This 78-nucleotide sequence from Kaistella treverensis belongs to the Rfam family "Flavo-1 RNA". By type it is a small RNA. The source organism's lineage runs through Bacteria, Pseudomonadati, Flavobacteriia, Flavobacteriales and Kaistella. It scores 74 bits against the family's covariance model. The base pairs follow the family's consensus structure, which is taken from published work.
[Rfam]
RNA sequence: UUCUAGCCCCGAUGGAAAUGAAAAUCCUUUUUUGCCGUCCCUCGGCAAAAAAGAUUGCAAUGGACAGCGGGUUGAAAC
Numbered sequence: 001u002u003c004u005a006g007c008c009c010c011g012a013u014g015g016a017a018a019u020g021a022a023a024a025u026c027c028u029u030u031u032u033u034g035c036c037g038u039c040c041c042u043c044g045g046c047a048a049a050a051a052a053g054a055u056u057g058c059a060a061u062g063g064a065c066a067g068c069g070g071g072u073u074g075a076a077a078c
Stems, first nucleotide, its partner, number of pairs: 009070003013066002018061002023056004029051008